RNA: Eukaryotic large subunit ribosomal RNA, nucleotides 423 to 661
RNA sequence: GAUGGAAGCUGACUAUGCACCCUGGUCGGAUGUGGAACGGUGACGAGCUGGUUCGCCGAUCGACUCGGGGUGUGGACCAGCGUGGCUUAGGGGGGCGGCCAAAGCCCGGUCUCUUGAUAUGCCCGUGGAAUAUCGUCUCCUUGAUUUUGGUACGAAGCGCGCUCUUAUGGCGUGCUUCGACAUCUGUGUGCUCCGGACACUGGCUGUGGGCUCCCCAUUCGAUCUGUCUUGAAACACGG
Numbered sequence: 001g002a003u004g005g006a007a008g009c010u011g012a013c014u015a016u017g018c019a020c021c022c023u024g025g026u027c028g029g030a031u032g033u034g035g036a037a038c039g040g041u042g043a044c045g046a047g048c049u050g051g052u053u054c055g056c057c058g059a060u061c062g063a064c065u066c067g068g069g070g071u072g073u074g075g076a077c078c079a080g081c082g083u084g085g086c087u088u089a090g091g092g093g094g095g096c097g098g099c100c101a102a103a104g105c106c107c108g109g110u111c112u113c114u115u116g117a118u119a120u121g122c123c124c125g126u127g128g129a130a131u132a133u134c135g136u137c138u139c140c141u142u143g144a145u146u147u148u149g150g151u152a153c154g155a156a157g158c159g160c161g162c163u164c165u166u167a168u169g170g171c172g173u174g175c176u177u178c179g180a181c182a183u184c185u186g187u188g189u190g191c192u193c194c195g196g197a198c199a200c201u202g203g204c205u206g207u208g209g210g211c212u213c214c215c216c217a218u219u220c221g222a223u224c225u226g227u228c229u230u231g232a233a234a235c236a237c238g239g
Stems, first nucleotide, its partner, number of pairs: 001219005008212001010210001015073001018072007077203004082198002224239004